mir-5890 microRNA precursor family: a 78-nucleotide sequence from Haemonchus contortus. The source organism's lineage runs through Eukaryota, Metazoa, Eumetazoa, Nematoda and Haemonchus.

RNA sequence: UUUAUGCGGCAGCAUAGGACUGAACUGUGGGAGGACUAAUGUGAUUCUACCCCUUUCCAUUCUUAUGCUGCUUUGGAG
Numbered sequence: 001u002u003u004a005u006g007c008g009g010c011a012g013c014a015u016a017g018g019a020c021u022g023a024a025c026u027g028u029g030g031g032a033g034g035a036c037u038a039a040u041g042u043g044a045u046u047c048u049a050c051c052c053c054u055u056u057c058c059a060u061u062c063u064u065a066u067g068c069u070g071c072u073u074u075g076g077a078g
Stems, first nucleotide, its partner, number of pairs: 008072012021059002024056001027053001029052003032048004036043001
Pairs were carried over by alignment from the consensus structure, which was predicted with RNAalifold.